[Rfam]
RNA sequence: CACUCCCCCUGCUUGUGUUCCUGCUCUCGCUGUGUCUCUCUGUCAAAUAAAUAAAAUUUUUUUUUUUUUUAAAGAUUUUAUUUAUUUAUUUGACAGAGAGAGACACAGCGAGAGCAGGAACACAAGCAGGGGGAGUG
Numbered sequence: 001c002a003c004u005c006c007c008c009c010u011g012c013u014u015g016u017g018u019u020c021c022u023g024c025u026c027u028c029g030c031u032g033u034g035u036c037u038c039u040c041u042g043u044c045a046a047a048u049a050a051a052u053a054a055a056a057u058u059u060u061u062u063u064u065u066u067u068u069u070u071a072a073a074g075a076u077u078u079u080a081u082u083u084a085u086u087u088a089u090u091u092g093a094c095a096g097a098g099a100g101a102g103a104c105a106c107a108g109c110g111a112g113a114g115c116a117g118g119a120a121c122a123c124a125a126g127c128a129g130g131g132g133g134a135g136u137g
Stems, first nucleotide, its partner, number of pairs: 002136002005133006012126007020118018040096016060075002063072002
This 137-nucleotide RNA sequence from Odobenus rosmarus belongs to the Rfam family "MIR7725 microRNA precursor family". It scores 82 bits against the family's covariance model. The source organism's lineage runs through Eukaryota, Craniata, Gnathostomata, Dipnotetrapodomorpha and Odobenus rosmarus.